DUF3800-IV RNA: a 91-nucleotide RNA sequence from Saccharopolyspora spinosa. Lineage of the source: Bacteria > Bacillati > Pseudonocardiales > Pseudonocardiaceae > Saccharopolyspora spinosa. The sequence is in the family's curated seed alignment. By type it is a small RNA.
RNA sequence: UCGGCUUCUCAAGCGCCUGCCAAGGACAGCCAGCGGUGCUGCCACCGCCCUCCUUCAGUGGAUCGGCCCUUGGAGGCUCUUGGGGAGCCGA
Numbered sequence: 001u002c003g004g005c006u007u008c009u010c011a012a013g014c015g016c017c018u019g020c021c022a023a024g025g026a027c028a029g030c031c032a033g034c035g036g037u038g039c040u041g042c043c044a045c046c047g048c049c050c051u052c053c054u055u056c057a058g059u060g061g062a063u064c065g066g067c068c069c070u071u072g073g074a075g076g077c078u079c080u081u082g083g084g085g086a087g088c089c090g091a
Stems, first nucleotide, its partner, number of pairs: 001091013015077004020073006029067003033048006051062003